[Rfam]
RNA sequence: AAGCACAGAGAACACCCAAGGGUGCUAACGUAGCUCCCCCUGGUCUCUUGUAUCUGUGCUACAGUAAAUCUGAUCUGUACCUCUGCAUUUGGGGAGUCCCUUUCUCUCCUACAUGUAUUCAGCGGAUCAGAAUAAAC
Numbered sequence: 001a002a003g004c005a006c007a008g009a010g011a012a013c014a015c016c017c018a019a020g021g022g023u024g025c026u027a028a029c030g031u032a033g034c035u036c037c038c039c040c041u042g043g044u045c046u047c048u049u050g051u052a053u054c055u056g057u058g059c060u061a062c063a064g065u066a067a068a069u070c071u072g073a074u075c076u077g078u079a080c081c082u083c084u085g086c087a088u089u090u091g092g093g094g095a096g097u098c099c100c101u102u103u104c105u106c107u108c109c110u111a112c113a114u115g116u117a118u119u120c121a122g123c124g125g126a127u128c129a130g131a132a133u134a135a136a137c
Stems, first nucleotide, its partner, number of pairs: 003059006010053001013050002016043003020039001022036001024034003061076001063074001065072002083122003086115003091109006
RNA: Small nucleolar RNA SNORA22